[Rfam]
RNA sequence: GGCCGGCGUUCCCAGUGUUCAGACUACCUGUUCAGGUGGGAAGGGAUGUACAGUAGUCUGCACAUUGGUUACGCCGGCGC
Numbered sequence: 001g002g003c004c005g006g007c008g009u010u011c012c013c014a015g016u017g018u019u020c021a022g023a024c025u026a027c028c029u030g031u032u033c034a035g036g037u038g039g040g041a042a043g044g045g046a047u048g049u050a051c052a053g054u055a056g057u058c059u060g061c062a063c064a065u066u067g068g069u070u071a072c073g074c075c076g077g078c079g080c
Stems, first nucleotide, its partner, number of pairs: 012068007020060007028053004033048002
The record is an 80-nucleotide RNA from Camarhynchus parvulus, which matches "mir-199 microRNA precursor family" in Rfam. Lineage of the source: Eukaryota > Craniata > Teleostomi > Archelosauria > Camarhynchus. For this family Rfam cites "microRNAs: tiny regulators with great potential" (Ambros, Cell, 2001). It scores 76 bits against the family's covariance model. The base pairs follow the family's consensus structure, which was predicted with RNAalifold. Rfam's curators write: This family consists of the microRNA (miRNA) precursor mir-199 which appears to be specific to humans. Animal miRNAs are transcribed as ~70nt precursors and subsequently processed by the Dicer enzyme to give a ~22nt product. In this case the mature sequence comes from the 3' arm of the precursor. The extents of the hairpin precursors are not generally known and are estimated based on hairpin prediction. The products are thought to have regulatory roles through complementarity to mRNA. The involvement of Dicer in miRNA processing suggests a relationship with the phenomenon of RNA interference. miRNAs are numbered based on the sequence of the mature RNA.